Shown here is a 121-nucleotide sequence from Rhizobium subbaraonis, a member of the family "Alphaproteobacterial ar14". It scores 100 bits against the family's covariance model. The family's RNA type in Rfam is small RNA. The source organism's lineage runs through Bacteria, Pseudomonadota, Alphaproteobacteria, Rhizobiaceae and Rhizobium. On this family, see del Val et al., RNA Biol 2012: "A survey of sRNA families in alpha-proteobacteria". Rfam links the family to the GO term biological process involved in symbiotic interaction. Rfam 15.1 lists 784 matches to the family in 332 species.
RNA sequence: AUCAAUCGGGCGCGGCACUCCUCCUCCCAGCCAGACCCGAUGCGAUUGGCAACACUCCUCCUCCCAAGUUGUCAAUCAGGAUAAACGCCCGCCGGACCUCCUCCCCCGGCGGGCGUAUCGA
Numbered sequence: 001a002u003c004a005a006u007c008g009g010g011c012g013c014g015g016c017a018c019u020c021c022u023c024c025u026c027c028c029a030g031c032c033a034g035a036c037c038c039g040a041u042g043c044g045a046u047u048g049g050c051a052a053c054a055c056u057c058c059u060c061c062u063c064c065c066a067a068g069u070u071g072u073c074a075a076u077c078a079g080g081a082u083a084a085a086c087g088c089c090c091g092c093c094g095g096a097c098c099u100c101c102u103c104c105c106c107c108g109g110c111g112g113g114c115g116u117a118u119c120g121a
Base pairs, nucleotide, nucleotide: 007039008038009037010036014032015031016030044077045076046075047074048073049072050071051070052069053068085116086115087114088113089112090111091110092109093108094107095106